[Rfam]
RNA: mir-153 microRNA precursor family
Organism: Branchiostoma belcheri
RNA sequence: UGGCUGCCAUUUUUGUGACCUUGCAACUGUACUGUGACCUCUGGUUGCAUAGUCUCAAAAGUGACAUCCUU
Numbered sequence: 001u002g003g004c005u006g007c008c009a010u011u012u013u014u015g016u017g018a019c020c021u022u023g024c025a026a027c028u029g030u031a032c033u034g035u036g037a038c039c040u041c042u043g044g045u046u047g048c049a050u051a052g053u054c055u056c057a058a059a060a061g062u063g064a065c066a067u068c069c070u071u
Base pairs, nucleotide, nucleotide: 002069003068005066006065008063009062010061011060012059013058014057015056017054018053019052022049023048024047025046026045027044028043